The record is a 69-nucleotide sequence from Boseongicola aestuarii, which matches "L2-Alphaproteobacteria ribosomal protein leader" in Rfam. The family's RNA type in Rfam is cis-regulatory leader. A search with the family's covariance model found it, with a score of 67 bits. On this family, see Eckert and Weinberg, BMC Microbiol 2020: "Discovery of 20 novel ribosomal leader candidates in bacteria and archaea".
RNA sequence: GGGGACCUUCGGGGCCCUUUAAACUGAAAAGCCGGGAACACCCGGCACGAAGCAAACGGAAGACAGAAA
Numbered sequence: 001g002g003g004g005a006c007c008u009u010c011g012g013g014g015c016c017c018u019u020u021a022a023a024c025u026g027a028a029a030a031g032c033c034g035g036g037a038a039c040a041c042c043c044g045g046c047a048c049g050a051a052g053c054a055a056a057c058g059g060a061a062g063a064c065a066g067a068a069a
Stems, first nucleotide, its partner, number of pairs: 001018004006014003031046006